[Rfam]
RNA sequence: AGGCGGGCUUGAGCCAGAUCUCUCCCCGCCCGGUCCACCACCUGACUCACCUUCCCCGGAGUCAGGCGGAGGAACCGGAGCGGUGGGGGAUCUGACCCAAGGCCGACGGCAA
Numbered sequence: 001a002g003g004c005g006g007g008c009u010u011g012a013g014c015c016a017g018a019u020c021u022c023u024c025c026c027c028g029c030c031c032g033g034u035c036c037a038c039c040a041c042c043u044g045a046c047u048c049a050c051c052u053u054c055c056c057c058g059g060a061g062u063c064a065g066g067c068g069g070a071g072g073a074a075c076c077g078g079a080g081c082g083g084u085g086g087g088g089g090a091u092c093u094g095a096c097c098c099a100a101g102g103c104c105g106a107c108g109g110c111a112a
Stems, first nucleotide, its partner, number of pairs: 010099002013096001015094004020089005026083004030078004036071001038069002041066008
Source information: A member of the RNA family "mraW RNA" from Zhihengliuella halotolerans, 112 nucleotides long. The family's RNA type in Rfam is cis-regulatory element. The organism belongs to Zhihengliuella, within Bacteria. The family has 45 seed sequences and 851 matches in Rfam 15.1. The family's consensus secondary structure is taken from published work.